Shown here is a 53-nucleotide RNA sequence from Paramesorhizobium endophyticum, a member of the family "serC leader". By type it is a cis-regulatory leader. For this family Rfam cites "Evidence for a second class of S-adenosylmethionine riboswitches and other regulatory RNA motifs in alpha-proteobacteria" (Corbino et al., Genome Biol, 2005). From the family's description: This family is a putative regulatory RNA structure that is found upstream of the serC-serA operon in some alpha-proteobacteria. The final stem of the structure overlaps the ribosome binding site of the serC reading frame.

[Rfam]
RNA sequence: CAGCGGGCCACUUCUCCCCACCGAGAAGCGUGCUAUCUGAGAGGAUAGGAUAA
Numbered sequence: 001c002a003g004c005g006g007g008c009c010a011c012u013u014c015u016c017c018c019c020a021c022c023g024a025g026a027a028g029c030g031u032g033c034u035a036u037c038u039g040a041g042a043g044g045a046u047a048g049g050a051u052a053a
Base pairs, nucleotide, nucleotide: 011028012027013026014025015024016023033048034047035046036045037044038043